[Rfam]
RNA sequence: GGUCGGAUAAGGCGUUCACGUCGCAUCCGACAAUAACAGCCUUGCCUGAUGCGACGCUGUCGCGUCUUAUCAGGCC
Numbered sequence: 001g002g003u004c005g006g007a008u009a010a011g012g013c014g015u016u017c018a019c020g021u022c023g024c025a026u027c028c029g030a031c032a033a034u035a036a037c038a039g040c041c042u043u044g045c046c047u048g049a050u051g052c053g054a055c056g057c058u059g060u061c062g063c064g065u066c067u068u069a070u071c072a073g074g075c076c
Stems, first nucleotide, its partner, number of pairs: 002031007011022004044075008053066005

This 76-nucleotide RNA sequence from Escherichia coli belongs to the Rfam family "Nucleoid-associated noncoding RNA 4 (CssrE)". Pairs were carried over by alignment from the consensus structure, which is taken from published work. A search with the family's covariance model found it, with a score of 75 bits. The family's RNA type in Rfam is small RNA. About the family: In E. coli small RNA transcribed from repeated extragenic palindromic element (REP325) called nucleoid-associated ncRNA 4 (nRNA4) collaborates HU protein in condensing the DNA. The secondary structure but not the sequence of the RNA is important in nucleoid condensation. Also identified in Shigella as CssrE.